[Rfam]
RNA: Aggregatibacter sRNA 20
Organism: [Mannheimia] succiniciproducens
Nucleotides: 076
Base pairs, nucleotide, nucleotide: 001071002070003069004068006066007065008064021036022035023034026031047063048062049061050060051059052058
Number, partner (000 for none) and nucleotide at each position: 001071a002070a003069a004068a005000c006066a007065a008064g009000u010000g011000c012000u013000a014000u015000u016000u017000c018000a019000a020000u021036a022035g023034c024000c025000u026031g027000a028000u029000a030000u031026u032000u033000u034023g035022c036021u037000u038000u039000c040000c041000g042000a043000g044000u045000a046000g047063u048062g049061c050060c051059u052058u053000u054000u055000c056000a057000a058052a059051a060050g061049g062048c063047a064008c065007u066006u067000u068004u069003u070002u071001u072000a073000u074000g075000u076000c